The record is a 136-nucleotide sequence from Microtus ochrogaster, which matches "U8 small nucleolar RNA" in Rfam. Its family is annotated with RNA processing and nucleolus in the Gene Ontology. The source organism's lineage runs through Eukaryota, Chordata, Dipnotetrapodomorpha, Eutheria and Microtus.

[Rfam]
RNA sequence: UCGUCAGGAGGUUAAUCCUUACCUGUUCCUCCUUUUGGAGGGCAGAUAGAAAAUGAUGAGUGGAGCUUGCAUGACUUGCUGAUUAGCAUUUCCAUGUAGCCAGGACUUGACAACAUCCUGGUUGCUCUUAUCUGAU
Numbered sequence: 001u002c003g004u005c006a007g008g009a010g011g012u013u014a015a016u017c018c019u020u021a022c023c024u025g026u027u028c029c030u031c032c033u034u035u036u037g038g039a040g041g042g043c044a045g046a047u048a049g050a051a052a053a054u055g056a057u058g059a060g061u062g063g064a065g066c067u068u069g070c071a072u073g074a075c076u077u078g079c080u081g082a083u084u085a086g087c088a089u090u091u092c093c094a095u096g097u098a099g100c101c102a103g104g105a106c107u108u109g110a111c112a113a114c115a116u117c118c119u120g121g122u123u124g125c126u127c128u129u130a131u132c133u134g135a136u
Stems, first nucleotide, its partner, number of pairs: 023045003027042006073092002077088002080085001096125009